[Rfam]
RNA: Fluoride riboswitch aptamer (crcB RNA motif)
RNA sequence: GUACAUGAUGGGAAUGGGGUUCUCCCGAAACUGCCAGCAAUUGGCUGAUGACUCCUGCUUGAAU
Numbered sequence: 001g002u003a004c005a006u007g008a009u010g011g012g013a014a015u016g017g018g019g020u021u022c023u024c025c026c027g028a029a030a031c032u033g034c035c036a037g038c039a040a041u042u043g044g045c046u047g048a049u050g051a052c053u054c055c056u057g058c059u060u061g062a063a064u
Stems, first nucleotide, its partner, number of pairs: 010026004016055006033045004
Dot-bracket structure: .........[[[[..((((((.]]]]......((((.....))))....)))))).........